[Rfam]
RNA sequence: GGGGAUGCACCGGUUUCGACGGGUGUGUUAGAGAUCUCGAGCUGCAGGUGAGGACGUCUUUCCUCCGAACAGACAAAACCUAUAAUUGCCGAUUUCGACAAUUCUUACGACUACGCCUUAGCUGCGUAAUCGCGGGAUACGGAUUGUGCCGCUCUGAACGGUCCGAUAUCCUGACGCUGAUCAGGGCUUGCUUUGCAGGGUGUCCGGUACCUGCACGGGACUUUUACCGGAAUACGGAGACGACGCUUGCGGCGCUGCUACCGUUUCCCGACAAAUACCUCGCGCCGCUAAACCUGUAGAUGUUCCCGGUCCUCUCAUUCGGACGGGGGUUCAAUUCCCCCCAUCUCCAACU
Dot-bracket structure: (((((((............((((((.(.....((((..((((..(((((((((..[[[[..)))).....]]]].................................(((.(((((.......))))).)))((((((.((((.(((...[[[[[[.))).))))..))))))........]]]]]]...((.((((((..[[.[.[..)))))).)).........].].]]..(((((((..((..[..[.[..))...)))))))..........]...]..].....))))).....))))..))))..).))))))...(((((.......))))))))))))....
RNA: transfer-messenger RNA
Organism: Treponema maltophilum